[Rfam]
RNA sequence: ACUUUGUUAAAUUAUAUUAAUUUCAUCGUGUUUACCUUAAAAAUAUUAUCAAAAUGGAAACACGAUAUAAU
Numbered sequence: 001a002c003u004u005u006g007u008u009a010a011a012u013u014a015u016a017u018u019a020a021u022u023u024c025a026u027c028g029u030g031u032u033u034a035c036c037u038u039a040a041a042a043a044u045a046u047u048a049u050c051a052a053a054a055u056g057g058a059a060a061c062a063c064g065a066u067a068u069a070a071u
Stems, first nucleotide, its partner, number of pairs: 025066008